[Rfam]
RNA sequence: CGCUUGGUGUUUAGUGUAUAGCUAAUAUUUAGCUAAGGGCUUUAUAGCGAGGCGGCCUAAUAAAUAAGGU
Numbered sequence: 001c002g003c004u005u006g007g008u009g010u011u012u013a014g015u016g017u018a019u020a021g022c023u024a025a026u027a028u029u030u031a032g033c034u035a036a037g038g039g040c041u042u043u044a045u046a047g048c049g050a051g052g053c054g055g056c057c058u059a060a061u062a063a064a065u066a067a068g069g070u
Stems, first nucleotide, its partner, number of pairs: 001054005007048002013041002015038001